[Rfam]
RNA sequence: GGGGCAAUAGCUCAGUUGGUUAGAGCAACGGACUCAUAAUCCGUUGGUCCUUGGUUCAAGUCCAAGUUGCCCCA
Dot-bracket structure: (((((((..((((.........)))).(((((.......))))).....(((((.......)))))))))))).
Numbered sequence: 001g002g003g004g005c006a007a008u009a010g011c012u013c014a015g016u017u018g019g020u021u022a023g024a025g026c027a028a029c030g031g032a033c034u035c036a037u038a039a040u041c042c043g044u045u046g047g048u049c050c051u052u053g054g055u056u057c058a059a060g061u062c063c064a065a066g067u068u069g070c071c072c073c074a
Stems, first nucleotide, its partner, number of pairs: 001073007010026004028044005050066005

tRNA: a 74-nucleotide RNA sequence from Estrella lausannensis. Lineage of the source: Bacteria > Chlamydiota > Chlamydiia > Parachlamydiales > Estrella. The family's RNA type in Rfam is transfer RNA. Rfam links the family to the GO term triplet codon-amino acid adaptor activity.